A member of the RNA family "mir-137 microRNA precursor family" from Strongylocentrotus purpuratus, 74 nucleotides long.
The family has 62 seed sequences and 1,138 matches in Rfam 15.1.
The match comes from Rfam's covariance-model search (66 bits).
The family's consensus secondary structure was predicted with RNAalifold.
RNA sequence: CAUGAUUACAGGUAUUCUCGAGUGAAUAAUACAGAAAAGCCUGAUGUUAUUGCUUGAGAAUACACGUAGUAUAC
Numbered sequence: 001c002a003u004g005a006u007u008a009c010a011g012g013u014a015u016u017c018u019c020g021a022g023u024g025a026a027u028a029a030u031a032c033a034g035a036a037a038a039g040c041c042u043g044a045u046g047u048u049a050u051u052g053c054u055u056g057a058g059a060a061u062a063c064a065c066g067u068a069g070u071a072u073a074c
Base pairs, nucleotide, nucleotide: 002072003071004070008067009066012063013062014061015060016059017058018057019056020055021054022053023052025051026050027049028048029047030046031045032043033042